Shown here is a 201-nucleotide RNA sequence from Sciurus carolinensis, a member of the family "Mnt IRES". The base pairs follow the family's consensus structure, which was predicted with PFOLD. Lineage of the source: Eukaryota > Bilateria > Tetrapoda > Rodentia > Sciurus.

RNA sequence: UUAUAUUUUGCAAAUAUUUUGGGAGACUGAUUUUUCUCCCCGUGCUCCCCCGUUCUAUUCUGAGGAGUGCGCUGCGCCGCCCAACCCUGUCGCCCCCCGGAGGUGAUCCCUCCCUCCAGCCCGCCCGCCAGCCUGACCUGUGCCUGGCUCGCGGGCCGCAGAUUCGGCCCCGGCGCGCCCCCGGCCGCUCUCGGCGCGAUG
Numbered sequence: 001u002u003a004u005a006u007u008u009u010g011c012a013a014a015u016a017u018u019u020u021g022g023g024a025g026a027c028u029g030a031u032u033u034u035u036c037u038c039c040c041c042g043u044g045c046u047c048c049c050c051c052g053u054u055c056u057a058u059u060c061u062g063a064g065g066a067g068u069g070c071g072c073u074g075c076g077c078c079g080c081c082c083a084a085c086c087c088u089g090u091c092g093c094c095c096c097c098c099g100g101a102g103g104u105g106a107u108c109c110c111u112c113c114c115u116c117c118a119g120c121c122c123g124c125c126c127g128c129c130a131g132c133c134u135g136a137c138c139u140g141u142g143c144c145u146g147g148c149u150c151g152c153g154g155g156c157c158g159c160a161g162a163u164u165c166g167g168c169c170c171c172g173g174c175g176c177g178c179c180c181c182c183g184g185c186c187g188c189u190c191u192c193g194g195c196g197c198g199a200u201g
Stems, first nucleotide, its partner, number of pairs: 023038004041071008074176006099113005123156006130149004
The match comes from Rfam's covariance-model search (237 bits). Rfam's curators write: This family represents the Mnt internal ribosome entry site (IRES).